This 114-nucleotide sequence from Callithrix jacchus belongs to the Rfam family "Y RNA". Y RNAs are components of the Ro ribonucleoprotein particle (Ro RNP), in association with Ro60 and La proteins. The Y RNAs and Ro60 and La proteins are well conserved, but the function of the Ro RNP is not known. In humans the RNA component can be one of four small RNAs -- hY1, hY3, hY4 and hY5. These small RNAs are predicted to fold into a conserved secondary structure containing three stem structures. The literature on the family includes a 2007 paper in Theory Biosci by Mosig et al., "Evolution of the vertebrate Y RNA cluster". The family's RNA type in Rfam is non-coding RNA gene.

[Rfam]
RNA sequence: GGCUGGUCCAAAGGUAGUGAGUUAUCUCAAUUGAUUGCUCACAGUCAGUUACAGAUCGAACUCGUUGUUCUAUUUGUUCCCCUCUUCUCACUGCUGCACUUAACUAGGCCUUUU
Dot-bracket structure: (((((((..((..((((((((.....................((..((.....................))..))...........))))))...))..)).)))).)))....

The source organism's lineage runs through Eukaryota, Opisthokonta, Amniota, Mammalia and Callithrix.